Shown here is an 85-nucleotide RNA from Ewingella americana, a member of the family "CyaR/Rye RNA". It is annotated as a small RNA. It scores 71 bits against the family's covariance model. This sRNA was originally identified in a large scale screen of E. coli. It was shown to bind Hfq and called RyeE. This sRNA has since been characterised as a post-transcriptional regulator of the 18 kDa OmpX porin in Salmonella. Phylogenetic and mutational analyses suggest that a conserved RNA hairpin of this sRNA which features a C-rich apical loop, acts to sequester the Shine-Dalgarno sequence of ompX mRNA and inhibits translational initiation. The expression of this sRNA has been shown to be tightly controlled by the cyclic AMP receptor protein, CRP and has been renamed CyaR (cyclic AMP-activated RNA). The organism belongs to Ewingella americana, within Bacteria. The literature on the family includes a 2001 paper in Genes Dev by Wassarman et al., "Identification of novel small RNAs using comparative genomics and microarrays".

RNA sequence: AUUUAGACGAAUGAAAAAUAAACUAUCGAACGAUACUAAGAACCACCUCCUUGGCCGGCUCAAUCUCCCUUGAGCUGGCUUUUCU
Numbered sequence: 001a002u003u004u005a006g007a008c009g010a011a012u013g014a015a016a017a018a019u020a021a022a023c024u025a026u027c028g029a030a031c032g033a034u035a036c037u038a039a040g041a042a043c044c045a046c047c048u049c050c051u052u053g054g055c056c057g058g059c060u061c062a063a064u065c066u067c068c069c070u071u072g073a074g075c076u077g078g079c080u081u082u083u084c085u
Base pairs, nucleotide, nucleotide: 038051040049041048053080054079055078056077057076058075059074060073061072062071063070